[Rfam]
RNA: UnaL2 LINE 3' element
Organism: Triplophysa rosa
RNA sequence: UUGUUUACCAUUUGUAGGUCGCUUUGGAUAAAAGCUUCUGCUAAAUGACUAAAU
Numbered sequence: 001u002u003g004u005u006u007a008c009c010a011u012u013u014g015u016a017g018g019u020c021g022c023u024u025u026g027g028a029u030a031a032a033a034g035c036u037u038c039u040g041c042u043a044a045a046u047g048a049c050u051a052a053a054u
Stems, first nucleotide, its partner, number of pairs: 013043001014041003021035005